[Rfam]
RNA sequence: AACGCCUUGUUUCGGUUUAGAAUUCCUACGCUUUACCGUGUUUUAGACUGGCAAAGCGUUUGGAUUCUGAAUCGAACCUGUG
Numbered sequence: 001a002a003c004g005c006c007u008u009g010u011u012u013c014g015g016u017u018u019a020g021a022a023u024u025c026c027u028a029c030g031c032u033u034u035a036c037c038g039u040g041u042u043u044u045a046g047a048c049u050g051g052c053a054a055a056g057c058g059u060u061u062g063g064a065u066u067c068u069g070a071a072u073c074g075a076a077c078c079u080g081u082g
Stems, first nucleotide, its partner, number of pairs: 010076003014073008023064003028059007036051002

Annotation:
Shown here is an 82-nucleotide sequence from Zophobas morio, a member of the family "mir-927 microRNA precursor family". The match comes from Rfam's covariance-model search (76 bits). Rfam links the family to the GO terms RISC complex and miRNA-mediated post-transcriptional gene silencing. Lineage of the source: Eukaryota > Opisthokonta > Protostomia > Neuropteroidea > Zophobas.